[Rfam]
RNA sequence: CCGGUUCCGGUUCACCUCCCGACACUUCCGGCGCGGGGGGACCCGGAGCC
Numbered sequence: 001c002c003g004g005u006u007c008c009g010g011u012u013c014a015c016c017u018c019c020c021g022a023c024a025c026u027u028c029c030g031g032c033g034c035g036g037g038g039g040g041a042c043c044c045g046g047a048g049c050c
Stems, first nucleotide, its partner, number of pairs: 003050003007046004015040007